[Rfam]
RNA sequence: AUGGCCAGACAUUAUACAAAAGCAAAUCCUGUAAACUCCAUUCAGCCUCCUUGCUAUCCGGUAACGGAGGCUGUUUUUUCGUUACGCCUUUCCCCGGCAGCAUCAGUAGCAGUAAUUUAUAGAUUCUACGAACUGAGACUGUCUGUCCGGGGAGAACAUACGUAACCCGGCGCAAGGCUCCU
Numbered sequence: 001a002u003g004g005c006c007a008g009a010c011a012u013u014a015u016a017c018a019a020a021a022g023c024a025a026a027u028c029c030u031g032u033a034a035a036c037u038c039c040a041u042u043c044a045g046c047c048u049c050c051u052u053g054c055u056a057u058c059c060g061g062u063a064a065c066g067g068a069g070g071c072u073g074u075u076u077u078u079u080c081g082u083u084a085c086g087c088c089u090u091u092c093c094c095c096g097g098c099a100g101c102a103u104c105a106g107u108a109g110c111a112g113u114a115a116u117u118u119a120u121a122g123a124u125u126c127u128a129c130g131a132a133c134u135g136a137g138a139c140u141g142u143c144u145g146u147c148c149g150g151g152g153a154g155a156a157c158a159u160a161c162g163u164a165a166c167c168c169g170g171c172g173c174a175a176g177g178c179u180c181c182u
Base pairs, nucleotide, nucleotide: 005061006060008058024032040055042053044051045050062084063083064082065081066080067079068078069077070076091153092152093151094150095149096148097147098145099144100143102142103141105140106139107138110135111134112133113132120128121127122126154180155179157176159174161172162171163170